[Rfam]
RNA sequence: GUUGGCCGAAAGAAGGCGGAUGGGAGAAACUCAAAGGUCGUCUUGACCUCUCCAAACUCCCGGGAAGGUCUGAGAGAUAGCCCCAGUGGGAUCCAGGAGAUCCCCCCGUGUCCUAAUAGAGGGGAGGCCGUAGAAGAAAGGUUCCCCUGCCAAGGGUUUGGAAACGGCCUCGGCUAGCAACACUUUCGUCUGAGUGCGAUCGCCACACCAACACAAUUCAGACUAGUCUUCGGCCAAC
Numbered sequence: 001g002u003u004g005g006c007c008g009a010a011a012g013a014a015g016g017c018g019g020a021u022g023g024g025a026g027a028a029a030c031u032c033a034a035a036g037g038u039c040g041u042c043u044u045g046a047c048c049u050c051u052c053c054a055a056a057c058u059c060c061c062g063g064g065a066a067g068g069u070c071u072g073a074g075a076g077a078u079a080g081c082c083c084c085a086g087u088g089g090g091a092u093c094c095a096g097g098a099g100a101u102c103c104c105c106c107c108g109u110g111u112c113c114u115a116a117u118a119g120a121g122g123g124g125a126g127g128c129c130g131u132a133g134a135a136g137a138a139a140g141g142u143u144c145c146c147c148u149g150c151c152a153a154g155g156g157u158u159u160g161g162a163a164a165c166g167g168c169c170u171c172g173g174c175u176a177g178c179a180a181c182a183c184u185u186u187c188g189u190c191u192g193a194g195u196g197c198g199a200u201c202g203c204c205a206c207a208c209c210a211a212c213a214c215a216a217u218u219c220a221g222a223c224u225a226g227u228c229u230u231c232g233g234c235c236a237a238c
Base pairs, nucleotide, nucleotide: 001238002237003236004235008231009230010229016204019201022061023060024059025058026057035049036048037047038046039045070221071220072219073218074217079175080174081173082172089103090102091101092100093099104123105122106121109118110117111116124171125170126169127168128167129166130165144156145155